[Rfam]
RNA sequence: UACAAUAAGGCUUUCAUGGGUGGUGGCUCACGCCCCUGGAAAGGGGGUGAUGCCUUAUGACAGUAUUCCAAACACUUUUACUGAUGAUUGUAUUUGCAACAUUGGUCGUGUCAAUAUUGUCAAACACAAAAAAAUAACCACCCUGUAAGCCUGACAAGCAAGUAGGUGGUUAUGAAGCCUAACUUCGUGAGUCGCCCCCUUGAAGGGCUGUUGUACAUGGCCGUUAGUGUAUCCGCACUAACGG
Numbered sequence: 001u002a003c004a005a006u007a008a009g010g011c012u013u014u015c016a017u018g019g020g021u022g023g024u025g026g027c028u029c030a031c032g033c034c035c036c037u038g039g040a041a042a043g044g045g046g047g048u049g050a051u052g053c054c055u056u057a058u059g060a061c062a063g064u065a066u067u068c069c070a071a072a073c074a075c076u077u078u079u080a081c082u083g084a085u086g087a088u089u090g091u092a093u094u095u096g097c098a099a100c101a102u103u104g105g106u107c108g109u110g111u112c113a114a115u116a117u118u119g120u121c122a123a124a125c126a127c128a129a130a131a132a133a134a135u136a137a138c139c140a141c142c143c144u145g146u147a148a149g150c151c152u153g154a155c156a157a158g159c160a161a162g163u164a165g166g167u168g169g170u171u172a173u174g175a176a177g178c179c180u181a182a183c184u185u186c187g188u189g190a191g192u193c194g195c196c197c198c199c200u201u202g203a204a205g206g207g208c209u210g211u212u213g214u215a216c217a218u219g220g221c222c223g224u225u226a227g228u229g230u231a232u233c234c235g236c237a238c239u240a241a242c243g244g
Stems, first nucleotide, its partner, number of pairs: 001215005007209001009193005015149001017147001018144003022139003028050003033046004059121007073086002098111001161173001194208004221244010